[Rfam]
RNA sequence: GCCCCCUGCCUGGUCGGACAGUCUGGUGCGCCAGUUGUGUUGGCAGAAGCAACGCACAUCAGGCUGAACGAGCCGGUAGGUGGCU
Numbered sequence: 001g002c003c004c005c006c007u008g009c010c011u012g013g014u015c016g017g018a019c020a021g022u023c024u025g026g027u028g029c030g031c032c033a034g035u036u037g038u039g040u041u042g043g044c045a046g047a048a049g050c051a052a053c054g055c056a057c058a059u060c061a062g063g064c065u066g067a068a069c070g071a072g073c074c075g076g077u078a079g080g081u082g083g084c085u
Stems, first nucleotide, its partner, number of pairs: 001084003004080001006079001009076002012073001014071003019066010030055002034053004040048001
Shown here is an 85-nucleotide RNA from Lymphocryptovirus macacinegamma10, a member of the family "mir-rL1-14 microRNA precursor family". A search with the family's covariance model found it, with a score of 68 bits. Pairs were carried over by alignment from the consensus structure, which was predicted with RNAalifold. The source organism's lineage runs through Viruses, Heunggongvirae, Peploviricota, Gammaherpesvirinae and Lymphocryptovirus macacinegamma10. Rfam links the family to the GO terms miRNA-mediated post-transcriptional gene silencing and RISC complex. Rfam 15.1 lists 7 matches to the family in 3 species.